[Rfam]
RNA sequence: ACAACAAGUGUUGUGUCCAACAACCAAAUUCAUAAAUUUGCUUUCCGAGUAGCCCCUGAUAUAGGGGCUUUUUUUUAUGCC
Numbered sequence: 001a002c003a004a005c006a007a008g009u010g011u012u013g014u015g016u017c018c019a020a021c022a023a024c025c026a027a028a029u030u031c032a033u034a035a036a037u038u039u040g041c042u043u044u045c046c047g048a049g050u051a052g053c054c055c056c057u058g059a060u061a062u063a064g065g066g067g068c069u070u071u072u073u074u075u076u077a078u079g080c081c
Base pairs, nucleotide, nucleotide: 001075003073004072006070007069008068022042024040026038027037029036053067054066055065056064057063058062